[Rfam]
RNA sequence: GACCAGCCGGUUUAGUAUUCCAAAACUGUUUAAAAAAUGAACAACAAGCACUGGACGCGAGACGAUCCUGAUCAAUACUUGAAUCGUUGGCGAGCCAUCUCCCCCAAGUGGUGCGCCAGUAAAGGCGCCAAUGGACCGCGUGCCUUUGUUUUACUCCUAAUGGUCUUAACCCGGCUUCACCCCCCAGAAUCCGG
Numbered sequence: 001g002a003c004c005a006g007c008c009g010g011u012u013u014a015g016u017a018u019u020c021c022a023a024a025a026c027u028g029u030u031u032a033a034a035a036a037a038u039g040a041a042c043a044a045c046a047a048g049c050a051c052u053g054g055a056c057g058c059g060a061g062a063c064g065a066u067c068c069u070g071a072u073c074a075a076u077a078c079u080u081g082a083a084u085c086g087u088u089g090g091c092g093a094g095c096c097a098u099c100u101c102c103c104c105c106a107a108g109u110g111g112u113g114c115g116c117c118a119g120u121a122a123a124g125g126c127g128c129c130a131a132u133g134g135a136c137c138g139c140g141u142g143c144c145u146u147u148g149u150u151u152u153a154c155u156c157c158u159a160a161u162g163g164u165c166u167u168a169a170c171c172c173g174g175c176u177u178c179a180c181c182c183c184c185c186a187g188a189a190u191c192c193g194g
Stems, first nucleotide, its partner, number of pairs: 039165002042162002086120004091115002094112001096110003121147008129138001171194004176189003
Dot-bracket structure: ......................................((.((..........................................((((.((.(.(((.........))).).)).))))(((((((((........).)))))))).............)).)).....((((.(((........))).))))